[Rfam]
RNA sequence: CUUGGCUACGGAGACAUGGUGCCCAGCACCAUUGCUGGCAAGAUUUUCGGGUCCAUCUGCUCACUCAGUGGCGUCUUGGUCAUUGCCCUGCCUGUGCCAGUCAUUGUGUCCAAC
Numbered sequence: 001c002u003u004g005g006c007u008a009c010g011g012a013g014a015c016a017u018g019g020u021g022c023c024c025a026g027c028a029c030c031a032u033u034g035c036u037g038g039c040a041a042g043a044u045u046u047u048c049g050g051g052u053c054c055a056u057c058u059g060c061u062c063a064c065u066c067a068g069u070g071g072c073g074u075c076u077u078g079g080u081c082a083u084u085g086c087c088c089u090g091c092c093u094g095u096g097c098c099a100g101u102c103a104u105u106g107u108g109u110c111c112a113a114c
Stems, first nucleotide, its partner, number of pairs: 002113001004111002007108005013102003018097001021095002037077002040074001050062002
Dot-bracket structure: .(.((.(((((.(((..(..((..............((.(.........((.........))...........).))................)).)..))).))))).)).).

A member of the RNA family "Potassium channel RNA editing signal", 114 nucleotides long. The family's consensus secondary structure is taken from published work. Its family is annotated with adenosine to inosine editing in the Gene Ontology. On this family, see Bhalla et al., Nat Struct Mol Biol 2004: "Control of human potassium channel inactivation by editing of a small mRNA hairpin". The sequence is in the family's curated seed alignment.